[Rfam]
RNA sequence: UGAAUACUUUUCCGGUACCCUUAUAUAAUUCCAGGAAUAUGGCCUGGAAGUCUCUACCGGGCGGCCGUAAACCGCCCUGGCUAUAAGGGGUAGUUGGUUAUUG
Dot-bracket structure: .................((((((((...(((((((.......)))))))........(((((((.......)))))).)..))))))))..............